[Rfam]
RNA: Z6 small nucleolar RNA
RNA sequence: UGCUGGUUGUGAGGCCCCCGCGCUCGGAGUCCUGGGCCCUGCCAGGGGUGAGCCGGCACGAGCG
Numbered sequence: 001u002g003c004u005g006g007u008u009g010u011g012a013g014g015c016c017c018c019c020g021c022g023c024u025c026g027g028a029g030u031c032c033u034g035g036g037c038c039c040u041g042c043c044a045g046g047g048g049u050g051a052g053c054c055g056g057c058a059c060g061a062g063c064g
Base pairs, nucleotide, nucleotide: 001064002063003062004061